[Rfam]
RNA sequence: GGCCGGGGACGACCCCGGCCUGAUCCCCUUAUGCCGGGACGACCCGG
Numbered sequence: 001g002g003c004c005g006g007g008g009a010c011g012a013c014c015c016c017g018g019c020c021u022g023a024u025c026c027c028c029u030u031a032u033g034c035c036g037g038g039a040c041g042a043c044c045c046g047g
Stems, first nucleotide, its partner, number of pairs: 001020008034047005
Guanidine-II riboswitch aptamer (mini-ykkC): a 47-nucleotide RNA from Muricoccus roseus. The base pairs follow the family's consensus structure, which is taken from published work.